Rfam assigns this 83-nucleotide RNA sequence from Desulfosporosinus sp. HMP52 to the family "c-di-GMP-I riboswitch aptamer".

RNA sequence: CUGCGAUAAUGGCAAACUCAGUGAGAGCUGGGGACGCAAAGCCACGGGUCUUACACGUGUGUGAAGACAGCCGGGUUAUCGAA
Numbered sequence: 001c002u003g004c005g006a007u008a009a010u011g012g013c014a015a016a017c018u019c020a021g022u023g024a025g026a027g028c029u030g031g032g033g034a035c036g037c038a039a040a041g042c043c044a045c046g047g048g049u050c051u052u053a054c055a056c057g058u059g060u061g062u063g064a065a066g067a068c069a070g071c072c073g074g075g076u077u078a079u080c081g082a083a
Stems, first nucleotide, its partner, number of pairs: 012037002017032006040077004045073003048068003055062002
Notes:
Pairs were carried over by alignment from the consensus structure, which is taken from published work.